[Rfam]
RNA sequence: UGGAAAGGCAGGCUUCGGCCUGCCUUUCCUGUUGCCCGAGACAGGACUUCCAACGUGCGGGGGGCAACGGAAGUCCAUCUCGUCGUCUCAACCGGGAUUGAUCACGAUUGGUUCCACUCUGUCAAUCGUAGUUAUCUAAAAUAGUGAUUGCCCCACAGCAACGUGGCUGGACGGUAAAUUUUCCAUAAA
Numbered sequence: 001u002g003g004a005a006a007g008g009c010a011g012g013c014u015u016c017g018g019c020c021u022g023c024c025u026u027u028c029c030u031g032u033u034g035c036c037c038g039a040g041a042c043a044g045g046a047c048u049u050c051c052a053a054c055g056u057g058c059g060g061g062g063g064g065c066a067a068c069g070g071a072a073g074u075c076c077a078u079c080u081c082g083u084c085g086u087c088u089c090a091a092c093c094g095g096g097a098u099u100g101a102u103c104a105c106g107a108u109u110g111g112u113u114c115c116a117c118u119c120u121g122u123c124a125a126u127c128g129u130a131g132u133u134a135u136c137u138a139a140a141a142u143a144g145u146g147a148u149u150g151c152c153c154c155a156c157a158g159c160a161a162c163g164u165g166g167c168u169g170g171a172c173g174g175u176a177a178a179u180u181u182u183c184c185a186u187a188a189a
Stems, first nucleotide, its partner, number of pairs: 002029012032177005037082005044076008056066003092170004096127006103121002106119002109116002128151008153166004

A member of the RNA family "Brucella sRNA CII26" from Brucella abortus, 189 nucleotides long. For this family Rfam cites "Identification of novel sRNAs in Brucella abortus 2308" (Dong et al., FEMS Microbiol Lett, 2014). The source organism's lineage runs through Bacteria, Pseudomonadati, Hyphomicrobiales, Brucella and Brucella abortus.